[Rfam]
Nucleotides: 053
Base pairs, nucleotide, nucleotide: 001027002026003025004024013042016039018037020035021034022033
Number, partner (000 for none) and nucleotide at each position: 001027c002026c003025g004024g005000a006000u007000a008000c009000c010000c011000c012000g013042g014000c015000a016039g017000a018037g019000c020035c021034g022033c023000a024004c025003c026002g027001g028000a029000u030000a031000a032000a033022g034021c035020g036000g037018c038000c039016c040000c041000g042013c043000c044000c045000c046000a047000c048000c049000g050000c051000c052000c053000a